[Rfam]
A member of the RNA family "mir-8904 microRNA precursor family" from Nyctereutes procyonoides, 101 nucleotides long.

RNA sequence: CCUCAGGCUCCCUGGGACACUAACAGACGCCUGCGCCCCGAGGAGAGUGAGCCAAGCUCCCUAAAGGGCUGCAGCGCGCAUGGCUUGACCUGGGAGCAGCU
Numbered sequence: 001c002c003u004c005a006g007g008c009u010c011c012c013u014g015g016g017a018c019a020c021u022a023a024c025a026g027a028c029g030c031c032u033g034c035g036c037c038c039c040g041a042g043g044a045g046a047g048u049g050a051g052c053c054a055a056g057c058u059c060c061c062u063a064a065a066g067g068g069c070u071g072c073a074g075c076g077c078g079c080a081u082g083g084c085u086u087g088a089c090c091u092g093g094g095a096g097c098a099g100c101u
Stems, first nucleotide, its partner, number of pairs: 007097006014090002019085001020083003028076001031074004035069004040062001042060004048054002
Rfam 15.1 lists 207 matches to the family in 4 species. A search with the family's covariance model found it, with a score of 100 bits. NCBI's taxonomy places the organism under Eukaryota, Deuterostomia, Euteleostomi, Theria, Nyctereutes. Rfam links the family to the GO terms RISC complex and miRNA-mediated post-transcriptional gene silencing.